[Rfam]
RNA sequence: GGGUUGGCUGGAGGGGAAGGGGAAGGGUCCAGGGUCAGCCGAGCAUGUCUUCAGGUUACCCUCUGCUCUGUCCUAGAAUGUCAGGUGAUGU
Numbered sequence: 001g002g003g004u005u006g007g008c009u010g011g012a013g014g015g016g017a018a019g020g021g022g023a024a025g026g027g028u029c030c031a032g033g034g035u036c037a038g039c040c041g042a043g044c045a046u047g048u049c050u051u052c053a054g055g056u057u058a059c060c061c062u063c064u065g066c067u068c069u070g071u072c073c074u075a076g077a078a079u080g081u082c083a084g085g086u087g088a089u090g091u
Stems, first nucleotide, its partner, number of pairs: 003089004008084004013079001019074004024069004032061004037056001039054001041052003